[Rfam]
RNA sequence: UAGAGUGUUGAUCGAGGUUUAAUUUUUUAAUAAAAUUAAGUUUAGGAAAGUCCAUGUUAGCACAUUGUGUUAGGAACACAUGUAGUGUUUGAGUUUAAGAAAAAAAUAACUUAAGGUAUUUAAUUCAAUUUAAAUAACGGCUUUUUUAUUUUCUAAGGAUUUUUUAUUAUAUAAUUAAUUUAUGAAAAUAAAGGAAUAAAGUGCCACAGAGACGAGUUAAUUAGAAAUAAUUAGGUGAAACGCGGUAAACCCCUCAAGCUAAUAAUCCAAAUUACGGUAGGAGCACAUAAAAAUCGAUUUUCCUAGAAGUAAUUUCAUGAUUGAUUUUUAUGCUAUUUUUAGAAAUAAAAGUAGAGAUAAAUGAUCACGCUUAUUUUGUAAAAAAAAUAAGAACAGAACAUGGCUUAUUACU
Numbered sequence: 001u002a003g004a005g006u007g008u009u010g011a012u013c014g015a016g017g018u019u020u021a022a023u024u025u026u027u028u029a030a031u032a033a034a035a036u037u038a039a040g041u042u043u044a045g046g047a048a049a050g051u052c053c054a055u056g057u058u059a060g061c062a063c064a065u066u067g068u069g070u071u072a073g074g075a076a077c078a079c080a081u082g083u084a085g086u087g088u089u090u091g092a093g094u095u096u097a098a099g100a101a102a103a104a105a106a107u108a109a110c111u112u113a114a115g116g117u118a119u120u121u122a123a124u125u126c127a128a129u130u131u132a133a134a135u136a137a138c139g140g141c142u143u144u145u146u147u148a149u150u151u152u153c154u155a156a157g158g159a160u161u162u163u164u165u166a167u168u169a170u171a172u173a174a175u176u177a178a179u180u181u182a183u184g185a186a187a188a189u190a191a192a193g194g195a196a197u198a199a200a201g202u203g204c205c206a207c208a209g210a211g212a213c214g215a216g217u218u219a220a221u222u223a224g225a226a227a228u229a230a231u232u233a234g235g236u237g238a239a240a241c242g243c244g245g246u247a248a249a250c251c252c253c254u255c256a257a258g259c260u261a262a263u264a265a266u267c268c269a270a271a272u273u274a275c276g277g278u279a280g281g282a283g284c285a286c287a288u289a290a291a292a293a294u295c296g297a298u299u300u301u302c303c304u305a306g307a308a309g310u311a312a313u314u315u316c317a318u319g320a321u322u323g324a325u326u327u328u329u330a331u332g333c334u335a336u337u338u339u340u341a342g343a344a345a346u347a348a349a350a351g352u353a354g355a356g357a358u359a360a361a362u363g364a365u366c367a368c369g370c371u372u373a374u375u376u377u378g379u380a381a382a383a384a385a386a387a388u389a390a391g392a393a394c395a396g397a398a399c400a401u402g403g404c405u406u407a408u409u410a411c412u
Stems, first nucleotide, its partner, number of pairs: 004412003007408001009367005015043010048406003052403005057262005062083004067079002089257005094115006116138001117136006139252002142196004150187004157181005201250002203246003218233006266282003286332014333354009370391008

Shown here is a 412-nucleotide RNA from Candidatus Phytoplasma luffae, a member of the family "Bacterial RNase P class B".
The literature on the family includes a 1998 paper in Annu Rev Biochem by Frank and Pace, "Ribonuclease P: unity and diversity in a tRNA processing ribozyme".
Rfam's curators write: Ribonuclease P (RNase P) is a ubiquitous endoribonuclease, found in archaea, bacteria and eukarya as well as chloroplasts and mitochondria. Its best characterised activity is the generation of mature 5'-ends of tRNAs by cleaving the 5'-leader elements of precursor-tRNAs. Cellular RNase Ps are ribonucleoproteins. RNA from bacterial RNase Ps retains its catalytic activity in the absence of the protein subunit, i.e. it is a ribozyme.
Rfam classes the family as a ribozyme.
NCBI's taxonomy places the organism under Bacteria, Mycoplasmatota, Mollicutes, Acholeplasmatales, 16SrVIII (Loofah witches'-broom group).
Its Rfam clan is "RNaseP clan".